[Rfam]
Description:
Shown here is a 203-nucleotide RNA sequence from Ifrita kowaldi, a member of the family "Small nucleolar RNA SNORA74". The organism belongs to Ifrita, within Eukaryota. By type it is an H/ACA-box small nucleolar RNA. The match comes from Rfam's covariance-model search (96 bits). The family's consensus secondary structure was predicted with PFOLD. U19 belongs to the H/ACA class of snoRNAs. snoRNAs bind a number of proteins (including dyskerin, Gar1p and Nop10p in the case of the H/ACA class) to form snoRNP complexes. This class are thought to guide the sites of modification of uridines to pseudouridines by forming direct base pairing interactions with substrate RNAs. Targets may include ribosomal and spliceosomal RNAs but the exact functions of many snoRNAs, including U19, are not confirmed. Co-precipitation of U19 snoRNA with RNase MRP RNA suggests that U19 may be involved in pre-rRNA processing.
RNA sequence: UCCAGUGGUAGUCAGCUGUCCAGAGCAAUACUAUGCCUGUGAUAGUGUUACACUGCUGGGAGAUAAAGAUCAGUCAUUUCUUCUGGCUGCUGUUGUCACCGUUCUGGAGGCAGCUGGUGCCAAGAAGAAGUGGCAUUGUGCUUCCCUGAGAGUGCACUAGAGGUUCUCUUGCCCUCUUUAGUGCUAGUCUGGAAGCCUACACA
Numbered sequence: 001u002c003c004a005g006u007g008g009u010a011g012u013c014a015g016c017u018g019u020c021c022a023g024a025g026c027a028a029u030a031c032u033a034u035g036c037c038u039g040u041g042a043u044a045g046u047g048u049u050a051c052a053c054u055g056c057u058g059g060g061a062g063a064u065a066a067a068g069a070u071c072a073g074u075c076a077u078u079u080c081u082u083c084u085g086g087c088u089g090c091u092g093u094u095g096u097c098a099c100c101g102u103u104c105u106g107g108a109g110g111c112a113g114c115u116g117g118u119g120c121c122a123a124g125a126a127g128a129a130g131u132g133g134c135a136u137u138g139u140g141c142u143u144c145c146c147u148g149a150g151a152g153u154g155c156a157c158u159a160g161a162g163g164u165u166c167u168c169u170u171g172c173c174c175u176c177u178u179u180a181g182u183g184c185u186a187g188u189c190u191g192g193a194a195g196c197c198u199a200c201a202c203a
Stems, first nucleotide, its partner, number of pairs: 001060009011051002015046006021039003068136001071133001073131002080127005086120002090116001093112001097109001099107002138198001140196006154184003158180006